The family of this 155-nucleotide sequence from Sulfobacillus sp. hq2 is "FMN riboswitch aptamer (RFN element)". The match comes from Rfam's covariance-model search (85 bits). The family's consensus secondary structure is taken from published work.
Nucleotides: 155
Base pairs, nucleotide, nucleotide: 004152005151006150007149008148009147010146018046019045049135050134051125052124053083054082055081056080078123079122086099087098088097104121106120107119108118109117127138128137129136
Number, partner (000 for none) and nucleotide at each position: 001000u002000a003000a004152g005151a006150c007149c008148u009147u010146c011000g012000g013000g014000g015000c016000g017000u018046g019045g020000u021000g022000a023000g024000a025000g026000g027000c028000g029000u030000u031000u032000c033000g034000u035000g036000g037000c038000c039000u040000c041000a042000a043000u044000u045019c046018c047000c048000g049135a050134c051125c052124g053083g054082c055081g056080g057000u058000a059000a060000a061000c062000u063000c064000a065000c066000g067000a068000a069000u070000g071000u072000u073000g074000a075000g076000g077000a078123g079122c080056c081055c082054g083053c084000g085000a086099g087098c088097c089000a090000a091000u092000c093000a094000u095000a096000u097088g098087g099086c100000a101000g102000g103000a104121g105000u106120c107119c108118g109117g110000u111000g112000u113000a114000a115000u116000c117109c118108c119107g120106g121104c122079g123078c124052c125051g126000a127138c128137a129136g130000u131000a132000c133000a134050g135049u136129c137128u138127g139000g140000a141000u142000g143000g144000g145000a146010g147009a148008a149007g150006g151005u152004u153000a154000u155000a